[Rfam]
The record is a 175-nucleotide RNA sequence from an uncultured cyanobacterium, which matches "Antisense RNA which regulates isiA expression" in Rfam. On this family, see Duhring et al., Proc Natl Acad Sci U S A 2006: "An internal antisense RNA regulates expression of the photosynthesis gene isiA". Rfam 15.1 lists 3,397 matches to the family in 659 species.
RNA sequence: GGUAGCCGUAGAUCACCCAGGGAUCGAGGGUGGGCUGCACCAGGCGAACGGUUUGCUGGGUGGCAUCGUACAACCCGCCCCAGGUGGUGGCUUUGGCGACGAGGAGCAGCGCCCCCGCCCCCAAAAACAGUAGGUGAUGACCGAGAAUCAUUCCUAAUUGGGCCGGAUUUUCCCA
Numbered sequence: 001g002g003u004a005g006c007c008g009u010a011g012a013u014c015a016c017c018c019a020g021g022g023a024u025c026g027a028g029g030g031u032g033g034g035c036u037g038c039a040c041c042a043g044g045c046g047a048a049c050g051g052u053u054u055g056c057u058g059g060g061u062g063g064c065a066u067c068g069u070a071c072a073a074c075c076c077g078c079c080c081c082a083g084g085u086g087g088u089g090g091c092u093u094u095g096g097c098g099a100c101g102a103g104g105a106g107c108a109g110c111g112c113c114c115c116c117g118c119c120c121c122c123a124a125a126a127a128c129a130g131u132a133g134g135u136g137a138u139g140a141c142c143g144a145g146a147a148u149c150a151u152u153c154c155u156a157a158u159u160g161g162g163c164c165g166g167a168u169u170u171u172c173c174c175a
Stems, first nucleotide, its partner, number of pairs: 133172002136169003141166003